[Rfam]
RNA sequence: AAUUCUGUUUGUAGAAACAAAGAGAAGUAGAUCUAAUCUAUAUCAAAUAAGUGCCAAUAUGUAAUGGGA
Numbered sequence: 001a002a003u004u005c006u007g008u009u010u011g012u013a014g015a016a017a018c019a020a021a022g023a024g025a026a027g028u029a030g031a032u033c034u035a036a037u038c039u040a041u042a043u044c045a046a047a048u049a050a051g052u053g054c055c056a057a058u059a060u061g062u063a064a065u066g067g068g069a
Stems, first nucleotide, its partner, number of pairs: 003022002006019005043068002051060003
Shown here is a 69-nucleotide sequence from Populus tomentosa, a member of the family "Plastid-clpP 5UTR RNA". Taxonomically the source falls in Populus (Eukaryota, Streptophytina, Tracheophyta, Spermatophyta). The literature on the family includes a 2023 paper in Plant Commun by Richter et al., "Retrograde signaling in plants: A critical review focusing on the GUN pathway and beyond". Rfam describes the family as follows. Plastid clpP is a non-coding RNA (ncRNA) recognised in plastids. It was found in the prime untranslated region (5UTR) of a protease complex subunit (clpP) in plastids, suggesting a posible cis-regulatory function. Rfam classes the family as a cis-regulatory element.